[Rfam]
RNA sequence: AGGAGAAUUGCGGGGCAAAUCUCCUUUGGCAGGAGGCUCAAUAAGGAAAUGCAUGGUGCCCAACACAUGCAUCUUAUAAUUGCUGCCUGCCAAUAGAGAAUUGCCCUGUAAUGCAACU
Numbered sequence: 001a002g003g004a005g006a007a008u009u010g011c012g013g014g015g016c017a018a019a020u021c022u023c024c025u026u027u028g029g030c031a032g033g034a035g036g037c038u039c040a041a042u043a044a045g046g047a048a049a050u051g052c053a054u055g056g057u058g059c060c061c062a063a064c065a066c067a068u069g070c071a072u073c074u075u076a077u078a079a080u081u082g083c084u085g086c087c088u089g090c091c092a093a094u095a096g097a098g099a100a101u102u103g104c105c106c107u108g109u110a111a112u113g114c115a116a117c118u
Base pairs, nucleotide, nucleotide: 005114007112008111009110011108012107013106014105015104016103017102018101021098022097023096027092028091029090030089031088032087033086035084
Dot-bracket structure: ....(.(((.((((((((..(((...(((((((.(................................................).)))))))...)))..)))))))).))).)....
mir-399 microRNA precursor family: a 118-nucleotide sequence from Prunus avium.
Taxonomically the source falls in Prunus (Eukaryota, Viridiplantae, Streptophyta, Tracheophyta).
About the family: mir-399 was identified in both Arabidopsis thaliana and Oryza sativa computationally and was later experimentally verified. mir-399 is thought to target mRNAs coding for a phosphatase transporter. The mature sequence is excised from the 3' arm of the hairpin.